[Rfam]
RNA sequence: CCGGAAGAUAGAGGCGGGUCAAACAAGAGUAGCUAAGGUGAGGUUGGAGAGAUACCUAUGAUUCUUAGCGAAAGGGGAUGGCUCCGAAGGGUGGAUUUUCUCUUAUAUUCCAUACCUGGUUCCUGGAUUAAGAGUCCUUGAACUGUCACCGUAUUGCGGUGAAGUGCUAUCGUUUUG
Numbered sequence: 001c002c003g004g005a006a007g008a009u010a011g012a013g014g015c016g017g018g019u020c021a022a023a024c025a026a027g028a029g030u031a032g033c034u035a036a037g038g039u040g041a042g043g044u045u046g047g048a049g050a051g052a053u054a055c056c057u058a059u060g061a062u063u064c065u066u067a068g069c070g071a072a073a074g075g076g077g078a079u080g081g082c083u084c085c086g087a088a089g090g091g092u093g094g095a096u097u098u099u100c101u102c103u104u105a106u107a108u109u110c111c112a113u114a115c116c117u118g119g120u121u122c123c124u125g126g127a128u129u130a131a132g133a134g135u136c137c138u139u140g141a142a143c144u145g146u147c148a149c150c151g152u153a154u155u156g157c158g159g160u161g162a163a164g165u166g167c168u169a170u171c172g173u174u175u176u177g
Stems, first nucleotide, its partner, number of pairs: 007171005016084006024076001032069007088117003091113005097107001118144005125137004146162007
RNA: Lysine riboswitch aptamer